Notes
Shown here is a 148-nucleotide sequence from Gossypium stocksii, a member of the family "Small nucleolar RNA F1/F2/snoR5a". This family contains F1, F2 and snoR5a sequences, all of which are members of the the H/ACA class of snoRNA that guide the sites of modification of uridines to pseudouridines. The base pairs follow the family's consensus structure, which was predicted with PFOLD. A search with the family's covariance model found it, with a score of 60 bits. Its family is annotated with RNA processing and nucleolus in the Gene Ontology. Rfam 15.1 lists 325 matches to the family in 97 species. It is annotated as an H/ACA-box small nucleolar RNA. NCBI's taxonomy places the organism under Eukaryota, Viridiplantae, Streptophyta, Magnoliopsida, Gossypium.
[Rfam]
Nucleotides: 148
Stems, first nucleotide, its partner, number of pairs: 004066005018052011034041001079141001081139003094126004100120004
Number, partner (000 for none) and nucleotide at each position: 001000u002000c003000u004066c005065a006064c007063c008062c009000a010000u011000g012000g013000u014000a015000u016000c017000u018052a019051a020050u021049g022048u023047c024046u025045g026044g027043u028042u029000u030000u031000u032000a033000u034041g035000u036000a037000u038000u039000u040000g041034u042028a043027a044026c045025u046024a047023g048022a049021c050020a051019u052018u053000u054000c055000g056000u057000u058000u059000u060000a061000a062008g063007g064006g065005u066004g067000g068000a069000u070000a071000a072000a073000a074000a075000u076000a077000u078000u079141a080000a081139c082138a083137g084000g085000u086000c087000u088000u089000g090000c091000g092000a093000c094126a095125c096124a097123g098000u099000u100120a101119g102118c103117u104000u105000c106000u107000u108000u109000c110000u111000a112000u113000c114000a115000c116000a117103a118102g119101c120100u121000u122000u123097c124096u125095g126094u127000u128000a129000c130000u131000a132000a133000a134000u135000c136000c137083c138082u139081g140000g141079u142000c143000a144000c145000a146000u147000u148000u